[Rfam]
RNA sequence: AAUAACAGACAAUAAUUAUUUCGUAUAACCCCAAUAAUAUGGUUUGGGGGUCUCUACCAGGAACCAAUAAUUCCUGCUUACGAAGAAGAUACAAUCUUUA
Numbered sequence: 001a002a003u004a005a006c007a008g009a010c011a012a013u014a015a016u017u018a019u020u021u022c023g024u025a026u027a028a029c030c031c032c033a034a035u036a037a038u039a040u041g042g043u044u045u046g047g048g049g050g051u052c053u054c055u056a057c058c059a060g061g062a063a064c065c066a067a068u069a070a071u072u073c074c075u076g077c078u079u080a081c082g083a084a085g086a087a088g089a090u091a092c093a094a095u096c097u098u099u100a
Stems, first nucleotide, its partner, number of pairs: 019085007029049006058076006
Rfam assigns this 100-nucleotide RNA from Hathewaya histolytica to the family "Purine riboswitch aptamer". Rfam links the family to the GO term purine nucleobase biosynthetic process. Pairs were carried over by alignment from the consensus structure, which is taken from published work. Lineage of the source: Bacteria > Bacillati > Eubacteriales > Clostridiaceae > Hathewaya. The match comes from Rfam's covariance-model search (78 bits).